[Rfam]
RNA sequence: GCCCCCGAGGAGCGUUGCAACAGGAGCCAUCCUGCCAGGCUCGGGGGUUGCGAGGGACCAUUGCAACGGCGCUCGUUCAUC
Numbered sequence: 001g002c003c004c005c006c007g008a009g010g011a012g013c014g015u016u017g018c019a020a021c022a023g024g025a026g027c028c029a030u031c032c033u034g035c036c037a038g039g040c041u042c043g044g045g046g047g048u049u050g051c052g053a054g055g056g057a058c059c060a061u062u063g064c065a066a067c068g069g070c071g072c073u074c075g076u077u078c079a080u081c
Base pairs, nucleotide, nucleotide: 002047003046004045005044006043007042008041021034022033023032024031025030
Dot-bracket structure: .(((((((............(((((....)))))......)))))))..................................
This 81-nucleotide RNA from Sulfurifustis variabilis belongs to the Rfam family "SAH (S-adenosyl-L-homocysteine) riboswitch aptamer". Pairs were carried over by alignment from the consensus structure, which is taken from published work. The match comes from Rfam's covariance-model search (68 bits). Gene Ontology terms of the family: S-adenosylhomocysteine metabolic process and regulation of gene expression. The organism belongs to Sulfurifustis, within Bacteria.